[Rfam]
RNA sequence: UCAUCAAGAUGAUGAAAUCAGAAAAUCUUAGGACACCUUCUGACACAGUCUGACAAUGCUGUGUAUGAGAACAACAUUUUAUUUCUGAUUAUUGA
Numbered sequence: 001u002c003a004u005c006a007a008g009a010u011g012a013u014g015a016a017a018u019c020a021g022a023a024a025a026u027c028u029u030a031g032g033a034c035a036c037c038u039u040c041u042g043a044c045a046c047a048g049u050c051u052g053a054c055a056a057u058g059c060u061g062u063g064u065a066u067g068a069g070a071a072c073a074a075c076a077u078u079u080u081a082u083u084u085c086u087g088a089u090u091a092u093u094g095a
Base pairs, nucleotide, nucleotide: 001095002094003093006090007089041047042046